[Rfam]
Nucleotides: 086
Stems, first nucleotide, its partner, number of pairs: 001086007
Number, partner (000 for none) and nucleotide at each position: 001086c002085g003084g004083c005082a006081g007080c008000g009000a010000u011000g012000a013000u014000g015000a016000c017000a018000g019000g020000a021000g022000u023000u024000g025000u026000g027000g028000c029000u030000g031000c032000a033000c034000g035000g036000g037000a038000c039000g040000g041000u042000u043000c044000g045000u046000u047000c048000c049000c050000g051000c052000c053000u054000g055000g056000a057000g058000a059000c060000a061000c062000c063000a064000g065000u066000c067000c068000c069000u070000c071000u072000a073000a074000a075000c076000u077000g078000a079000c080007g081006u082005u083004g084003c085002c086001g

Small nucleolar RNA SNORD127: an 86-nucleotide sequence from Todus mexicanus. Rfam links the family to the GO terms RNA processing and nucleolus. For this family Rfam cites "snoSeeker: an advanced computational package for screening of guide and orphan snoRNA genes in the human genome" (Yang et al., Nucleic Acids Res, 2006). NCBI's taxonomy places the organism under Eukaryota, Deuterostomia, Sarcopterygii, Aves, Todus. A search with the family's covariance model found it, with a score of 58 bits. Rfam classes the family as a C/D-box small nucleolar RNA.